[Rfam]
RNA sequence: CUACCUGGGGGAUUUAUCAUACUUUUAUGUUUUGUUUUAUUAAAUACAUAAAAGUAUGAUAAAUCCCCCAGGUAG
Numbered sequence: 001c002u003a004c005c006u007g008g009g010g011g012a013u014u015u016a017u018c019a020u021a022c023u024u025u026u027a028u029g030u031u032u033u034g035u036u037u038u039a040u041u042a043a044a045u046a047c048a049u050a051a052a053a054g055u056a057u058g059a060u061a062a063a064u065c066c067c068c069c070a071g072g073u074a075g
Stems, first nucleotide, its partner, number of pairs: 003073005009067003013063002017059005024052006

This 75-nucleotide RNA from Xenopus laevis belongs to the Rfam family "mir-965 microRNA precursor family". Rfam 15.1 lists 224 matches to the family in 178 species. NCBI's taxonomy places the organism under Eukaryota, Teleostomi, Tetrapoda, Batrachia, Xenopus.